[Rfam]
RNA sequence: CCAGACGGUCGGACGGCCGCUGUCGGCGCGCAUAUGUGCGGUGAUGGAGGAAAGUCCGGGCUCCACGGAAGAACGGUGCCGGCUAACGGCCGGCGGGGGCGACCCCAGGGACAGUGCCACAGAAAACAGACCGCCCCCACGGCAGAGGGCCCGGUUUCGCGACCGGACCGGAUGUUGGGGGCAAGGGUGAAACGGUGCGGCAAGAGCGCACCGCGCGCAUGGUAACAUGGGCGGCAGGGCAAACCCCACCGGGAGCAAGACCGAAUAGGAACGGCAGGCGGGCGGAUUCAGGUCCGCGCCGCCAGGGGCCUUCCGCCCCGUCGUUCGGGUUGGUCGCGUGAGGCGUGCCGCAAGGCGCGUCCCAGAGGAAUGGCCGUCCCAUCCCCACCGGGGAUGGACAGAACCCGGCUUACAGACCGUCUGGCAUC
Dot-bracket structure: ((((((((((((((((((.((((((.((((......)))).))))))....[[[.[[[[[((((......[[.((((((((((.....)))))(((((....)))).)((...(((((............(((((((((....................................)))))))..)).......((((((.......))))))((((.((((....)))).))).)..)))..)))))))))))))...((((......((((((..............................(((((.]]..))))).)))))).....))))......((((((((....))))))))..........))))))).........................]]]]]]]].).))))))))))....

Shown here is a 428-nucleotide RNA from Novacetimonas maltaceti, a member of the family "Bacterial RNase P class A". Rfam classes the family as a ribozyme. Lineage of the source: Bacteria > Pseudomonadati > Pseudomonadota > Acetobacteraceae > Novacetimonas.